Description:
Small nucleolar RNA Z102/R77: an 85-nucleotide sequence from Tripterygium wilfordii. Rfam links the family to the GO terms nucleolus and RNA processing. It is annotated as a C/D-box small nucleolar RNA. A search with the family's covariance model found it, with a score of 75 bits. Lineage of the source: Eukaryota > Viridiplantae > Tracheophyta > Gunneridae > Tripterygium.
RNA sequence: GAAUGGGAUGAUGAUCGAUAUCGUUUCCCUAUUGGUUUGAUUGCCUGCAUGAUGGCACAUUUCUAUCAGGUCUAUCUGACCAUUC
Numbered sequence: 001g002a003a004u005g006g007g008a009u010g011a012u013g014a015u016c017g018a019u020a021u022c023g024u025u026u027c028c029c030u031a032u033u034g035g036u037u038u039g040a041u042u043g044c045c046u047g048c049a050u051g052a053u054g055g056c057a058c059a060u061u062u063c064u065a066u067c068a069g070g071u072c073u074a075u076c077u078g079a080c081c082a083u084u085c
Stems, first nucleotide, its partner, number of pairs: 002084004039058001042057004